[Rfam]
RNA sequence: UAGUGUUACAGCUCUUUUAGAAUUUGUCUAUCAGGACUUCAGGUUUUUUUCUUUUUUUUUUUUUUGCUGGAAAGCCCCU
Numbered sequence: 001u002a003g004u005g006u007u008a009c010a011g012c013u014c015u016u017u018u019a020g021a022a023u024u025u026g027u028c029u030a031u032c033a034g035g036a037c038u039u040c041a042g043g044u045u046u047u048u049u050u051c052u053u054u055u056u057u058u059u060u061u062u063u064u065u066g067c068u069g070g071a072a073a074g075c076c077c078c079u
Stems, first nucleotide, its partner, number of pairs: 034076002038072003042068003